[Rfam]
RNA sequence: GAUGACCGGCCGGACACGACUGUGCCCGGCCCACAAGUGGAGGCUCCGACUUCCCACCCGACCGCCUUCCGGGCGGCGGGUCACCGGUCAGGCGGUCCCCAUCGUUCCGUACGGACGAUGGAAUCGCCCGAUGUGCGCCCCGUGACUGUCACGGCGGUGCUCCGGUAUUCGAGGAGCUGCCGCCUGUGUCCCGUCCGGGGCAUUUUUU
Numbered sequence: 001g002a003u004g005a006c007c008g009g010c011c012g013g014a015c016a017c018g019a020c021u022g023u024g025c026c027c028g029g030c031c032c033a034c035a036a037g038u039g040g041a042g043g044c045u046c047c048g049a050c051u052u053c054c055c056a057c058c059c060g061a062c063c064g065c066c067u068u069c070c071g072g073g074c075g076g077c078g079g080g081u082c083a084c085c086g087g088u089c090a091g092g093c094g095g096u097c098c099c100c101a102u103c104g105u106u107c108c109g110u111a112c113g114g115a116c117g118a119u120g121g122a123a124u125c126g127c128c129c130g131a132u133g134u135g136c137g138c139c140c141c142g143u144g145a146c147u148g149u150c151a152c153g154g155c156g157g158u159g160c161u162c163c164g165g166u167a168u169u170c171g172a173g174g175a176g177c178u179g180c181c182g183c184c185u186g187u188g189u190c191c192c193g194u195c196c197g198g199g200g201c202a203u204u205u206u207u208u
Base pairs, nucleotide, nucleotide: 004089005088006087007086008085009084012027013026028082029081030080031079032078034060037057038056039055040054041052042051062076063075064074065073066072067071091128092127093126095125099121100120101119102118103117104116105115106114137201138200139199140198141197142196143193144192150188151187152186153184154183155182156181157180159177160176161175162174163173
RNA: Streptomyces RNA 1601
Organism: Streptomyces qinzhouensis